[Rfam]
Nucleotides: 090
Stems, first nucleotide, its partner, number of pairs: 012037002017032004022027001041083003046080003049075003056069004
Number, partner (000 for none) and nucleotide at each position: 001000a002000c003000a004000c005000g006000a007000c008000a009000a010000g011000g012037g013036c014000a015000a016000a017032c018031c019030g020029g021000c022027c023000g024000a025000a026000a027022g028000a029020c030019c031018g032017g033000g034000a035000c036013g037012c038000a039000a040000a041083g042082c043081u044000c045000a046080g047079g048078a049075g050074g051073c052000u053000a054000c055000a056069g057068c058067g059066g060000g061000a062000a063000c064000a065000c066059c067058c068057g069056c070000c071000a072000g073051g074050c075049c076000a077000g078048u079047c080046c081043a082042g083041c084000c085000g086000c087000c088000g089000a090000c

Shown here is a 90-nucleotide RNA sequence from Lawsonibacter faecis, a member of the family "c-di-GMP-I riboswitch aptamer". Its family is annotated with cyclic-di-GMP binding in the Gene Ontology. NCBI's taxonomy places the organism under Bacteria, Clostridia, Eubacteriales, Oscillospiraceae, Lawsonibacter.